[Rfam]
RNA sequence: GAGCGUGCUCUGGGGGCGGUGAAACUCCGCACCGGCGGUGACUGGGUGAAAGUCCGGAAGUCCGCGACCCGGCCACAGCCAGUGGCCGGUUGACCAGGUGGGAUUCCUGGACCGACGGUCAAAGUCCGGAUGAGAAGAACACGCAC
Numbered sequence: 001g002a003g004c005g006u007g008c009u010c011u012g013g014g015g016g017c018g019g020u021g022a023a024a025c026u027c028c029g030c031a032c033c034g035g036c037g038g039u040g041a042c043u044g045g046g047u048g049a050a051a052g053u054c055c056g057g058a059a060g061u062c063c064g065c066g067a068c069c070c071g072g073c074c075a076c077a078g079c080c081a082g083u084g085g086c087c088g089g090u091u092g093a094c095c096a097g098g099u100g101g102g103a104u105u106c107c108u109g110g111a112c113c114g115a116c117g118g119u120c121a122a123a124g125u126c127c128g129g130a131u132g133a134g135a136a137g138a139a140c141a142c143g144c145a146c
Stems, first nucleotide, its partner, number of pairs: 003144005009138002017029003031125002033114002035065004060112002069089002094110005116128003
Dot-bracket structure: ..(((((.((......(((.......))).[[((((((.....................[[))))...((.................))....(((((.......)))))]])).(((.....]])))........)).)))))..